[Rfam]
RNA sequence: AUUUAAAAUCACAAAUCAGAUUACAAAAUUACUCAUAUGGCUGAAGAUGACCAACUUCAUUGGUCCUAGAACGGCCUGAGGUAGAGGGGUUUUAGUUGGUAGGCGCUCCUUCAGGGUGAAUCCAACACUACCCUGUCGUACGGACGGCAGGGUGUCUUUUGAAGAUUUCCCCUCUUCCCCGAAA
Dot-bracket structure: ................................((((.(......).)))).....(((.....................((.((.(((......(((((....(((((.....)))))...))))).(..((((..............)))).)..............)))..)).))..))).